[Rfam]
RNA: Molybdenum/Tungsten riboswitch aptamer (Moco RNA motif)
RNA sequence: CUAACGGUUAGACUCCGAGCUUAUUUGGUCUAAAGGAGACUACGACAAAUAGGCCUGAAGGGUUUAGCGGAAAACCGCUGACCCUCCCCUUGCGGAAAGGAGUCAGUAUCCAUUAGGU
Numbered sequence: 001c002u003a004a005c006g007g008u009u010a011g012a013c014u015c016c017g018a019g020c021u022u023a024u025u026u027g028g029u030c031u032a033a034a035g036g037a038g039a040c041u042a043c044g045a046c047a048a049a050u051a052g053g054c055c056u057g058a059a060g061g062g063u064u065u066a067g068c069g070g071a072a073a074a075c076c077g078c079u080g081a082c083c084c085u086c087c088c089c090u091u092g093c094g095g096a097a098a099g100g101a102g103u104c105a106g107u108a109u110c111c112a113u114u115a116g117g118u
Stems, first nucleotide, its partner, number of pairs: 006109001011104006019054008028046003034041002060085003064081007086095002